[Rfam]
RNA: Small nucleolar RNA ACA64
RNA sequence: ACAGUCUGAAAAUUAUCCGGGACGUGUCCGUCGCCCUGGGUAAGAUAACUGUGCACACAGGGAGGUGGCACAUUUAAGCUCAUUGCCUGCUGAUGUGGUGGUGCAAUUAAACCCAUGUGCCUACAGAC
Numbered sequence: 001a002c003a004g005u006c007u008g009a010a011a012a013u014u015a016u017c018c019g020g021g022a023c024g025u026g027u028c029c030g031u032c033g034c035c036c037u038g039g040g041u042a043a044g045a046u047a048a049c050u051g052u053g054c055a056c057a058c059a060g061g062g063a064g065g066u067g068g069c070a071c072a073u074u075u076a077a078g079c080u081c082a083u084u085g086c087c088u089g090c091u092g093a094u095g096u097g098g099u100g101g102u103g104c105a106a107u108u109a110a111a112c113c114c115a116u117g118u119g120c121c122u123a124c125a126g127a128c
Stems, first nucleotide, its partner, number of pairs: 006051001008049001010046001013043004021035001023033002067121001069119005080109001082107003088100003